The family of this 357-nucleotide RNA sequence from Veillonella sp. HPA0037 is "Bacterial RNase P class A". Lineage of the source: Bacteria > Bacillati > Bacillota > Negativicutes > Veillonella.

RNA sequence: GAAGCAAGUAUGAAAGACGGUUGCGAGUCCGUUGGACUCGAGGAAAGUCCGAGCUCCAUAGGGCAGGAUGCCAGAUAACGUCUGGCGAGGGUGACCUUAGGGAAAGUGCCAUAGAAAAGGAAACCGCCACGUCAGUGGUAAGGGUGGAAAGGUGAGGUAAGAGCUCACCAGCAGUCUGGUAACAGGCUGGCUCGGUAAACCCCAUCCGGAGCAAGACCGAAUAGGGAAGGGUUAACGGUGGUCCCGCCUACCUUCCGGGUUGUGUCGCUCGAGCGUGCAGGCGACUGUACGUCUAGAAAGAUAAUCGUCACCGCGUAAGCGGAACAGAACUCGGCUUAAUGAUUGCUUGCUUCUUAU
Numbered sequence: 001g002a003a004g005c006a007a008g009u010a011u012g013a014a015a016g017a018c019g020g021u022u023g024c025g026a027g028u029c030c031g032u033u034g035g036a037c038u039c040g041a042g043g044a045a046a047g048u049c050c051g052a053g054c055u056c057c058a059u060a061g062g063g064c065a066g067g068a069u070g071c072c073a074g075a076u077a078a079c080g081u082c083u084g085g086c087g088a089g090g091g092u093g094a095c096c097u098u099a100g101g102g103a104a105a106g107u108g109c110c111a112u113a114g115a116a117a118a119g120g121a122a123a124c125c126g127c128c129a130c131g132u133c134a135g136u137g138g139u140a141a142g143g144g145u146g147g148a149a150a151g152g153u154g155a156g157g158u159a160a161g162a163g164c165u166c167a168c169c170a171g172c173a174g175u176c177u178g179g180u181a182a183c184a185g186g187c188u189g190g191c192u193c194g195g196u197a198a199a200c201c202c203c204a205u206c207c208g209g210a211g212c213a214a215g216a217c218c219g220a221a222u223a224g225g226g227a228a229g230g231g232u233u234a235a236c237g238g239u240g241g242u243c244c245c246g247c248c249u250a251c252c253u254u255c256c257g258g259g260u261u262g263u264g265u266c267g268c269u270c271g272a273g274c275g276u277g278c279a280g281g282c283g284a285c286u287g288u289a290c291g292u293c294u295a296g297a298a299a300g301a302u303a304a305u306c307g308u309c310a311c312c313g314c315g316u317a318a319g320c321g322g323a324a325c326a327g328a329a330c331u332c333g334g335c336u337u338a339a340u341g342a343u344u345g346c347u348u349g350c351u352u353c354u355u356a357u
Stems, first nucleotide, its partner, number of pairs: 001353010011342001016309007024040007045337003049334005054211004061244004066207005071085005086100001087098004101202002106200002108196003124143002126139005151169006171191001172189007215266003218262001225256006237248004273292008
Gene Ontology terms of the family: dimeric ribonuclease P complex, tRNA processing and ribonuclease P activity.
The match comes from Rfam's covariance-model search (282 bits).
About the family: Ribonuclease P (RNase P) is a ubiquitous endoribonuclease, found in archaea, bacteria and eukarya as well as chloroplasts and mitochondria. Its best characterised activity is the generation of mature 5'-ends of tRNAs by cleaving the 5'-leader elements of precursor-tRNAs. Cellular RNase Ps are ribonucleoproteins.